[Rfam]
RNA sequence: GUUUCCACUGUUGCUCGGAGAACACACGCAGUGGGAUUCAGAAUUCCUAGAGAACUGCCUUUAUGAGAAGCUGGAAGUAUGUCUUUAAAUUCCAUCUCUUAGUUUUUCAAUUUGUUGCAUUUCAGAGAAACAUCAAGAAACC
Numbered sequence: 001g002u003u004u005c006c007a008c009u010g011u012u013g014c015u016c017g018g019a020g021a022a023c024a025c026a027c028g029c030a031g032u033g034g035g036a037u038u039c040a041g042a043a044u045u046c047c048u049a050g051a052g053a054a055c056u057g058c059c060u061u062u063a064u065g066a067g068a069a070g071c072u073g074g075a076a077g078u079a080u081g082u083c084u085u086u087a088a089a090u091u092c093c094a095u096c097u098c099u100u101a102g103u104u105u106u107u108c109a110a111u112u113u114g115u116u117g118c119a120u121u122u123c124a125g126a127g128a129a130a131c132a133u134c135a136a137g138a139a140a141c142c
Base pairs, nucleotide, nucleotide: 006074010071011070012069014067015066016065018062019061020060023057024056033048034047035046036045080140082138083137084136085135090130091129093127
A member of the RNA family "ODC internal ribosome entry site (IRES)" from Otolemur garnettii, 142 nucleotides long. Its family is annotated with ribosome binding in the Gene Ontology. Rfam 15.1 lists 437 matches to the family in 128 species. The organism belongs to Otolemur, within Eukaryota. A search with the family's covariance model found it, with a score of 127 bits.